This 390-nucleotide sequence from Sphingomonas jeddahensis belongs to the Rfam family "Bacterial RNase P class A". Lineage of the source: Bacteria > Pseudomonadati > Alphaproteobacteria > Sphingomonadales > Sphingomonas.
RNA sequence: UCAGAGGGCCGGGCGGCCGCGUCGUGGUUCGCCACGUCGAGGAAAGUCCGGGCUCCGCGGAACAACGGUGGCGGGUAACGCCCGCCGGGGGUGACCCCAGGGAAAGUGCCACAGAGAGCAGACCGCCUAAUCUUUUAGAUGAAGGCUUCGGCCAGGCAAGGGUGAAAGGGUGCGGCAAGAGCGCACCGCGCUUCCGGUAACGGCGGCGGCAUGGCAAACCCCACCGGGAGCAAGACCGAAUAGGGGCGGCAUGGGGACUUGAUCCCCGGGGUGUGUUCCCACCUGCUGCCCGGGUUGGUUGCUGGAGCGCGUCGGCAACGGCGCGCCGAGAGGAAUGGUCGCCCAUCCCGAGAGGGAGGACAGAACCCGGCUUACAGGCCCUCUGGUGUC
Numbered sequence: 001u002c003a004g005a006g007g008g009c010c011g012g013g014c015g016g017c018c019g020c021g022u023c024g025u026g027g028u029u030c031g032c033c034a035c036g037u038c039g040a041g042g043a044a045a046g047u048c049c050g051g052g053c054u055c056c057g058c059g060g061a062a063c064a065a066c067g068g069u070g071g072c073g074g075g076u077a078a079c080g081c082c083c084g085c086c087g088g089g090g091g092u093g094a095c096c097c098c099a100g101g102g103a104a105a106g107u108g109c110c111a112c113a114g115a116g117a118g119c120a121g122a123c124c125g126c127c128u129a130a131u132c133u134u135u136u137a138g139a140u141g142a143a144g145g146c147u148u149c150g151g152c153c154a155g156g157c158a159a160g161g162g163u164g165a166a167a168g169g170g171u172g173c174g175g176c177a178a179g180a181g182c183g184c185a186c187c188g189c190g191c192u193u194c195c196g197g198u199a200a201c202g203g204c205g206g207c208g209g210c211a212u213g214g215c216a217a218a219c220c221c222c223a224c225c226g227g228g229a230g231c232a233a234g235a236c237c238g239a240a241u242a243g244g245g246g247c248g249g250c251a252u253g254g255g256g257a258c259u260u261g262a263u264c265c266c267c268g269g270g271g272u273g274u275g276u277u278c279c280c281a282c283c284u285g286c287u288g289c290c291c292g293g294g295u296u297g298g299u300u301g302c303u304g305g306a307g308c309g310c311g312u313c314g315g316c317a318a319c320g321g322c323g324c325g326c327c328g329a330g331a332g333g334a335a336u337g338g339u340c341g342c343c344c345a346u347c348c349c350g351a352g353a354g355g356g357a358g359g360a361c362a363g364a365a366c367c368c369g370g371c372u373u374a375c376a377g378g379c380c381c382u383c384u385g386g387u388g389u390c
Base pairs, nucleotide, nucleotide: 001386002385003384004383005382006381007380008379009378010377011375012343013342014341015340016339017338018337020039021038023036024035025034026033027032044373045372046371048370049369050368051367052366053230054229055228056227062277066226067225068224069223070222071085072084073083074082075081086100087098088097089096090095101221102220106219107218108215109214110213123161124160125157126156127155128154131151132150169187170186171185172184173183174182188210189208190207191206192205194203195202196201234300235299236298237297244291245290246289247288248287249286269284270283271282272281273280307326308325309324310323311322312321313320314319
It is annotated as a ribozyme.